[Rfam]
RNA sequence: GAACUGUCACAACGGCUUCCUGACGUGACAGGGAUCACCCAAUGGAGCA
Numbered sequence: 001g002a003a004c005u006g007u008c009a010c011a012a013c014g015g016c017u018u019c020c021u022g023a024c025g026u027g028a029c030a031g032g033g034a035u036c037a038c039c040c041a042a043u044g045g046a047g048c049a
Stems, first nucleotide, its partner, number of pairs: 004031007013022002015048003019045002

Rfam assigns this 49-nucleotide RNA from Paragemmobacter aquarius to the family "SAM/SAH riboswitch aptamer". For this family Rfam cites "The structure of the SAM/SAH-binding riboswitch" (Weickhmann et al., Nucleic Acids Res, 2019). The match comes from Rfam's covariance-model search (60 bits). Taxonomically the source falls in Paragemmobacter (Bacteria, Pseudomonadota, Alphaproteobacteria, Rhodobacterales).